[Rfam]
RNA sequence: CGAGUGGUUUAGGUAGUUUCAUGUUGUUGGGGGUCCAUUUCUUAACUCUGCAACAUGAAACUGUCUUAAUUGCCCC
Numbered sequence: 001c002g003a004g005u006g007g008u009u010u011a012g013g014u015a016g017u018u019u020c021a022u023g024u025u026g027u028u029g030g031g032g033g034u035c036c037a038u039u040u041c042u043u044a045a046c047u048c049u050g051c052a053a054c055a056u057g058a059a060a061c062u063g064u065c066u067u068a069a070u071u072g073c074c075c076c
Stems, first nucleotide, its partner, number of pairs: 004073006011066009022055006029048003
A member of the RNA family "mir-196 microRNA precursor family" from Xiphophorus maculatus, 76 nucleotides long. On this family, see Lagos-Quintana et al., RNA 2003: "New microRNAs from mouse and human". Rfam 15.1 lists 1,813 matches to the family in 642 species.